Record summary
A member of the RNA family "RNA anti-toxin A" from Leuconostoc citreum, 90 nucleotides long. Pairs were carried over by alignment from the consensus structure, which was predicted with RNAalifold. The family has 16 seed sequences and 190 matches in Rfam 15.1. Rfam's curators put it in the seed alignment. Taxonomically the source falls in Leuconostoc citreum (Bacteria, Bacillota, Bacilli, Leuconostoc). A reference for the family is Fozo et al. (2010), "Abundance of type I toxin-antitoxin systems in bacteria: searches for new candidates and discovery of novel families", Nucleic Acids Res.
RNA sequence: UAAUGAAUACAGAAAAAAGGAAGCCUUGCGCUAACAAGACUUCCUAUGUAGAGCCGUUUAAGACGGUGACAAUACUAUGAUUAUUAAAUA
Dot-bracket structure: ........................((((......))))..............((((((...)))))).......................
Numbered sequence: 001u002a003a004u005g006a007a008u009a010c011a012g013a014a015a016a017a018a019g020g021a022a023g024c025c026u027u028g029c030g031c032u033a034a035c036a037a038g039a040c041u042u043c044c045u046a047u048g049u050a051g052a053g054c055c056g057u058u059u060a061a062g063a064c065g066g067u068g069a070c071a072a073u074a075c076u077a078u079g080a081u082u083a084u085u086a087a088a089u090a
Stems, first nucleotide, its partner, number of pairs: 025038004053067006